[Rfam]
RNA sequence: AUGUCAGAAGGACACUUUCUGAUUAAUUGUUUGUAUCUUUCCCAAGCUUCAUAGAGGGAUUCUCCUUCCUUCUGUCUGAAGGUUUGGACUUCCACUCUGAGCUU
Number, nucleotide and partner (000 for none) at each position: 001a104002u000003g102004u101005c099006a098007g000008a000009a000010g000011g000012a000013c000014a000015c000016u000017u000018u000019c000020u000021g000022a000023u000024u000025a000026a000027u000028u000029g000030u000031u000032u000033g000034u000035a000036u000037c000038u000039u000040u000041c000042c000043c000044a000045a000046g000047c000048u000049u000050c000051a000052u000053a000054g071055a070056g000057g068058g000059a000060u000061u000062c000063u000064c000065c000066u000067u000068c057069c000070u055071u054072c000073u000074g000075u000076c000077u000078g000079a000080a000081g000082g000083u000084u000085u000086g000087g000088a000089c000090u000091u000092c000093c000094a000095c000096u000097c000098u006099g005100a000101g004102c003103u000104u001

Shown here is a 104-nucleotide RNA sequence from Arachis hypogaea, a member of the family "Plant small nucleolar RNA R71". The source organism's lineage runs through Eukaryota, Streptophytina, eudicotyledons, Dalbergieae and Arachis. Rfam classes the family as a C/D-box small nucleolar RNA.